[Rfam]
RNA sequence: UUUUUAUCAAGAAAGACGGAGGGACUGGCCCAAUGAUGUCUAGCAACCUGGAUUAAAUGUUAUCAUUAGUUUAAGGUGCUAAUUCCUGCAGAUUUUAUAUCUGGUAGAUAAGAA
Numbered sequence: 001u002u003u004u005u006a007u008c009a010a011g012a013a014a015g016a017c018g019g020a021g022g023g024a025c026u027g028g029c030c031c032a033a034u035g036a037u038g039u040c041u042a043g044c045a046a047c048c049u050g051g052a053u054u055a056a057a058u059g060u061u062a063u064c065a066u067u068a069g070u071u072u073a074a075g076g077u078g079c080u081a082a083u084u085c086c087u088g089c090a091g092a093u094u095u096u097a098u099a100u101c102u103g104g105u106a107g108a109u110a111a112g113a114a
Base pairs, nucleotide, nucleotide: 001114002113003112004111005110006109007108008107013041015040016039017038021031022030023029025088027086028085042080043079044078045077047076048075050071051070084106089103090102091101092100093099
RNA: SAM riboswitch aptamer (S box leader)
Organism: Clostridium chromiireducens